This 97-nucleotide sequence from Sphaerisporangium rubeum belongs to the Rfam family "Glycine riboswitch aptamer". About the family: This family represents the bacterial glycine riboswitch. NCBI's taxonomy places the organism under Bacteria, Actinomycetota, Streptosporangiales, Streptosporangiaceae, Sphaerisporangium.
[Rfam]
RNA sequence: CGACCCCGUGCGGGAGAGCGUCCUGGCAUCCGGUCAGGACCCCUGAAGGAGCAAGUCCUCCCACGAACCUCACAAGGCAAAGGACCGCGCGGGUCAG
Number, nucleotide and partner (000 for none) at each position: 001c000002g000003a000004c000005c000006c092007c091008g090009u089010g088011c087012g086013g085014g000015a000016g000017a000018g000019c000020g040021u039022c038023c037024u036025g035026g000027c000028a000029u000030c000031c000032g000033g000034u000035c025036a024037g023038g022039a021040c020041c000042c077043c076044u075045g073046a000047a000048g000049g071050a070051g069052c000053a000054a000055g064056u063057c000058c000059u000060c000061c000062c000063a056064c055065g000066a000067a000068c000069c051070u050071c049072a000073c045074a000075a044076g043077g042078c000079a000080a000081a000082g000083g000084a000085c013086c012087g011088c010089g009090c008091g007092g006093g000094u000095c000096a000097g000